[Rfam]
RNA sequence: CUCUCCGAAAUAGCUUUAGGGCUAGCCUUGAGCCACUACGUUACGGGGGUAGAGCGACUGAAUCGGCUUGGGGGCCUUUCCCGGCUACCCUGCUGAACCAAACUCCGAAUACCGUAACGACUAUCUCAGGAGUCAGACCGCGAGGGAUAAGCUUCGCGGUCGAGAGGGAAACAACCCAGACCGUCGGCUAAGGUCCCGAAGUAAAACUCAGUCACUAAGGAAGUGAUGUUGCGGUGACAGCCAGGAUGUUGGCUUAGAAGCAGCCAUCAUUUAAAAAGUGCGUAACAGCUUACUGGUCGAGCAACGUCGCGCCGAAAAUGAUCGGGAGUAAGUUUUACACCGAAGCCGCGGAAUCGAAAGAUUGGUAGGAGAGCGCUGCAGGUCAGAUACAUCCCCGGCGGGAACGCUGGGCGUUGGGGCCUUGCAGGUGAUUAU
Dot-bracket structure: ((((((....(((((....))))).(((((((....(.((((((((.....(((....((..((((...((.((((......)))).))...))))..))..)).).....))))))))...).)))))).)...((((((((((......))))))))))....(((......)))...((((.(((...(((......(((((((...........((..((((((((((.......(((((.(((..(((.........)))..)))(...)(...((......)).).)))))...)))))))))).))..................))))))))))...)))))))((((....))))....))))))(.(((((((.(.........(((((((....)))))))......)..)))))))..).....
Rfam assigns this 435-nucleotide part of an RNA from planctomycete str. 670 to the family "Bacterial large subunit ribosomal RNA". Rfam links the family to the GO terms structural constituent of ribosome and ribosome. The base pairs follow the family's consensus structure, which is taken from published work. The sequence is in the family's curated seed alignment.